[Rfam]
RNA sequence: CGUGAGUAUGGGAAUGAGGUUCUCCCUUAGUGAAUACUAAAACCGCUUAUCAAGCUGAUGACUUCUGCGUAAAU
Numbered sequence: 001c002g003u004g005a006g007u008a009u010g011g012g013a014a015u016g017a018g019g020u021u022c023u024c025c026c027u028u029a030g031u032g033a034a035u036a037c038u039a040a041a042a043c044c045g046c047u048u049a050u051c052a053a054g055c056u057g058a059u060g061a062c063u064u065c066u067g068c069g070u071a072a073a074u
Stems, first nucleotide, its partner, number of pairs: 010026004016065006045055003
Fluoride riboswitch aptamer (crcB RNA motif): a 74-nucleotide RNA from Clostridium sp. FS41. Lineage of the source: Bacteria > Bacillota > Clostridia > Clostridiaceae > Clostridium.